The family of this 87-nucleotide sequence from Zingiber officinale is "MIR396 microRNA precursor family". For this family Rfam cites "Computational identification of plant microRNAs and their targets, including a stress-induced miRNA" (Jones-Rhoades and Bartel, Mol Cell, 2004). A search with the family's covariance model found it, with a score of 87 bits.
RNA sequence: CUUUGUGGUCUUCCACAGCUUUCUUGAACUGCAAAUAUACAAUCUAUUCAAGUUGCAGUUCAAUAAAGCUGUGGGAAAUUACAGAGA
Numbered sequence: 001c002u003u004u005g006u007g008g009u010c011u012u013c014c015a016c017a018g019c020u021u022u023c024u025u026g027a028a029c030u031g032c033a034a035a036u037a038u039a040c041a042a043u044c045u046a047u048u049c050a051a052g053u054u055g056c057a058g059u060u061c062a063a064u065a066a067a068g069c070u071g072u073g074g075g076a077a078a079u080u081a082c083a084g085a086g087a
Stems, first nucleotide, its partner, number of pairs: 003084005013074003017070006024063004029058005
Pairs were carried over by alignment from the consensus structure, which was predicted with WAR.